[Rfam]
RNA: SAM-I/IV (S-adenosyl methionine) riboswitch aptamer
Nucleotides: 136
Base pairs, nucleotide, nucleotide: 006105007104008103009102010101015042017041018040019039020038021037043065044064045063048061049060050059051057054129107118108117109116110115
Number, partner (000 for none) and nucleotide at each position: 001000a002000c003000c004000a005000u006105g007104c008103a009102u010101u011000a012000a013000g014000a015042g016000a017041g018040g019039c020038g021037u022000g023000g024000c025000g026000g027000c028000a029000u030000g031000a032000g033000c034000c035000a036000a037021g038020c039019g040018c041017c042015c043065g044064g045063c046000a047000a048061c049060c050059u051057g052000a053000c054129a055000a056000c057051c058000a059050a060049g061048g062000u063045g064044c065043c066000a067000g068000c069000a070000u071000g072000u073000u074000u075000u076000g077000u078000g079000a080000a081000c082000a083000c084000g085000g086000u087000g088000u089000u090000u091000g092000c093000a094000a095000a096000a097000c098000a099000g100000c101010g102009a103008u104007g105006c106000g107118c108117c109116c110115c111000g112000u113000a114000a115110g116109g117108g118107g119000a120000a121000a122000g123000u124000u125000g126000a127000c128000c129054u130000a131000c132000c133000g134000u135000a136000c